[Rfam]
RNA sequence: GCACUGAAAGUGAGAGUUGGAGAGAAACAAACUGGCUGAUGCAGGGCAGACAUGCACGGUCACUGCAGCUCAGCUUGUUUUUCUCCAAUAUCUCACCUUCAGUCA
Numbered sequence: 001g002c003a004c005u006g007a008a009a010g011u012g013a014g015a016g017u018u019g020g021a022g023a024g025a026a027a028c029a030a031a032c033u034g035g036c037u038g039a040u041g042c043a044g045g046g047c048a049g050a051c052a053u054g055c056a057c058g059g060u061c062a063c064u065g066c067a068g069c070u071c072a073g074c075u076u077g078u079u080u081u082u083c084u085c086c087a088a089u090a091u092c093u094c095a096c097c098u099u100c101a102g103u104c105a
Base pairs, nucleotide, nucleotide: 004102005101006100007099008098011095012094013093014092016089017088018087019086020085021084023082024081025080026079027078028077029076030075032073033072034071035070
Rfam assigns this 105-nucleotide sequence from Eragrostis curvula to the family "MIR2275 microRNA precursor family". It scores 71 bits against the family's covariance model. Rfam 15.1 lists 785 matches to the family in 111 species.